This 68-nucleotide sequence from Piliocolobus tephrosceles belongs to the Rfam family "Small nucleolar RNA SNORD95". For this family Rfam cites "Identification of 13 novel human modification guide RNAs" (Vitali et al., Nucleic Acids Res, 2003). The family's RNA type in Rfam is C/D-box small nucleolar RNA. The organism belongs to Piliocolobus, within Eukaryota.
RNA sequence: AGGGUGGUGAUGACCCCAGCAUUCCAUCUGAAUGCCUGUGCUGAAACCCAGAGGCUGUUUCUGAACCA
Numbered sequence: 001a002g003g004g005u006g007g008u009g010a011u012g013a014c015c016c017c018a019g020c021a022u023u024c025c026a027u028c029u030g031a032a033u034g035c036c037u038g039u040g041c042u043g044a045a046a047c048c049c050a051g052a053g054g055c056u057g058u059u060u061c062u063g064a065a066c067c068a
Base pairs, nucleotide, nucleotide: 005068006067007066008065